RNA sequence: GGGAGCGGGGGAUCCAGGGCACGACGCCCAAAACGGUCGCCUGACCGUCGUGCCUAGCGAGCGGCGAGACCGGCCCCACCGUGC
Numbered sequence: 001g002g003g004a005g006c007g008g009g010g011g012a013u014c015c016a017g018g019g020c021a022c023g024a025c026g027c028c029c030a031a032a033a034c035g036g037u038c039g040c041c042u043g044a045c046c047g048u049c050g051u052g053c054c055u056a057g058c059g060a061g062c063g064g065c066g067a068g069a070c071c072g073g074c075c076c077c078a079c080c081g082u083g084c
Stems, first nucleotide, its partner, number of pairs: 001084001003082001005080001008077004013059001015057001019053008035071002037067005

Shown here is an 84-nucleotide RNA sequence, a member of the family "c-di-GMP-II-GAG riboswitch aptamer". Gene Ontology terms of the family: regulation of gene expression and cyclic-di-GMP binding. The sequence is in the family's curated seed alignment. A reference for the family is Weinberg et al. (2017), "Bioinformatic analysis of riboswitch structures uncovers variant classes with altered ligand specificity", Proc Natl Acad Sci U S A.